MIR2275 microRNA precursor family: a 96-nucleotide RNA sequence from Papaver nudicaule. Lineage of the source: Eukaryota > Magnoliopsida > Mesangiospermae > Ranunculales > Papaver.

RNA sequence: UGUCUGGAAGUGAGAAUUGGAUGAAACUAAAUCGACUGCUCUUACCAUCUUUGUUUACAAUCGACUUAGUUUCCUCCAAUAUCUCACAUCCGACAA
Numbered sequence: 001u002g003u004c005u006g007g008a009a010g011u012g013a014g015a016a017u018u019g020g021a022u023g024a025a026a027c028u029a030a031a032u033c034g035a036c037u038g039c040u041c042u043u044a045c046c047a048u049c050u051u052u053g054u055u056u057a058c059a060a061u062c063g064a065c066u067u068a069g070u071u072u073c074c075u076c077c078a079a080u081a082u083c084u085c086a087c088a089u090c091c092g093a094c095a096a
Stems, first nucleotide, its partner, number of pairs: 005092004011086004016080006023073008032064002